[Rfam]
RNA sequence: CGCCUGGCGACUUGGCACAACCGCUGCAUUAGCUUCAUCAACAACUCACAUAUAGCCGCCCCUUCAACGUCGAAGGAUUGAGCUUCCCGAGAGAACGGGACCGGACAAAGGUGUCCUCGCCAGGUAACUGGUGGGGGCGCC
Numbered sequence: 001c002g003c004c005u006g007g008c009g010a011c012u013u014g015g016c017a018c019a020a021c022c023g024c025u026g027c028a029u030u031a032g033c034u035u036c037a038u039c040a041a042c043a044a045c046u047c048a049c050a051u052a053u054a055g056c057c058g059c060c061c062c063u064u065c066a067a068c069g070u071c072g073a074a075g076g077a078u079u080g081a082g083c084u085u086c087c088c089g090a091g092a093g094a095a096c097g098g099g100a101c102c103g104g105a106c107a108a109a110g111g112u113g114u115c116c117u118c119g120c121c122a123g124g125u126a127a128c129u130g131g132u133g134g135g136g137g138c139g140c141c
Stems, first nucleotide, its partner, number of pairs: 012108003015027003055083002057080002061076002064073002085100005110141007118133006
The family of this 141-nucleotide sequence from Pseudomonas salomonii is "Pseudomonas sRNA P11". The organism belongs to Pseudomonas, within Bacteria. By type it is a non-coding RNA gene. The literature on the family includes a 2006 paper in Nucleic Acids Res by Livny et al., "Identification of 17 Pseudomonas aeruginosa sRNAs and prediction of sRNA-encoding genes in 10 diverse pathogens using the bioinformatic tool sRNAPredict2". From the family's description: This small RNA (sRNA) was computationally identified in the genome of the opportunistic pathogen Pseudomonas aeruginosa and its expression verified by northern blot analysis. P11 is located between a putative threonine protein kinase and putative nitrate reductase and appears to be conserved in several Pseudomonas species. P11 has a predicted Rho independent terminator at the 3'end but the function of P11 is unknown.